[Rfam]
RNA sequence: GGAGCUGUGGCCGAGAGGCUGAAGGCGGCGGUUUGCUAAACCGUUAUAGGGUUGUAAAGCCCUAUCGAGGGUUCGAAUCCCUCCGGCUCCG
Numbered sequence: 001g002g003a004g005c006u007g008u009g010g011c012c013g014a015g016a017g018g019c020u021g022a023a024g025g026c027g028g029c030g031g032u033u034u035g036c037u038a039a040a041c042c043g044u045u046a047u048a049g050g051g052u053u054g055u056a057a058a059g060c061c062c063u064a065u066c067g068a069g070g071g072u073u074c075g076a077a078u079c080c081c082u083c084c085g086g087c088u089c090c091g
Stems, first nucleotide, its partner, number of pairs: 001090007010026003028044005067083005
The record is a 91-nucleotide sequence from Blastochloris tepida, which matches "tRNA" in Rfam.
Taxonomically the source falls in Blastochloris (Bacteria, Pseudomonadati, Hyphomicrobiales, Blastochloridaceae).
By type it is a transfer RNA.
Gene Ontology term of the family: triplet codon-amino acid adaptor activity.
It scores 57 bits against the family's covariance model.